[Rfam]
RNA sequence: CUUCUGCAAUGAUGAGUUCAUGAAACAAUUCACAUGUCAGACUUCAGAGAUUCCAGCAAUGGAAUCAAUGAGAAGAGAAAUUCAUCUUUUCUGAGCAGAAG
Numbered sequence: 001c002u003u004c005u006g007c008a009a010u011g012a013u014g015a016g017u018u019c020a021u022g023a024a025a026c027a028a029u030u031c032a033c034a035u036g037u038c039a040g041a042c043u044u045c046a047g048a049g050a051u052u053c054c055a056g057c058a059a060u061g062g063a064a065u066c067a068a069u070g071a072g073a074a075g076a077g078a079a080a081u082u083c084a085u086c087u088u089u090u091c092u093g094a095g096c097a098g099a100a101g
Stems, first nucleotide, its partner, number of pairs: 001101007049066007
RNA: Small nucleolar RNA R64/Z200 family